[Rfam]
RNA sequence: UGUCGAAGUUCCGUCUACAAACGGAUAAGACUUUGGUAUUAGCGUAUACUGAGUUAUUGAACAUAAAGGAGCAAUAAUCAAUUUCUUGUUAUAGCAAGAAGUUUGGUAUUGCUCCUUU
Numbered sequence: 001u002g003u004c005g006a007a008g009u010u011c012c013g014u015c016u017a018c019a020a021a022c023g024g025a026u027a028a029g030a031c032u033u034u035g036g037u038a039u040u041a042g043c044g045u046a047u048a049c050u051g052a053g054u055u056a057u058u059g060a061a062c063a064u065a066a067a068g069g070a071g072c073a074a075u076a077a078u079c080a081a082u083u084u085c086u087u088g089u090u091a092u093a094g095c096a097a098g099a100a101g102u103u104u105g106g107u108a109u110u111g112c113u114c115c116u117u118u
Stems, first nucleotide, its partner, number of pairs: 010025005065118012080103002083100005
Plastid-psbA-1 3UTR RNA: a 118-nucleotide RNA sequence from Ziziphus mauritiana. About the family: Plastid psbA-1 is a non-coding RNA (ncRNA) present in plastids. It was identified in inverted repeat sequences in the 3 prime untranslate region (3UTR) of photosystem II quinone-binding protein (psbA). For this family Rfam cites "Retrograde signaling in plants: A critical review focusing on the GUN pathway and beyond" (Richter et al., Plant Commun, 2023). NCBI's taxonomy places the organism under Eukaryota, Tracheophyta, rosids, fabids, Ziziphus. By type it is a cis-regulatory element.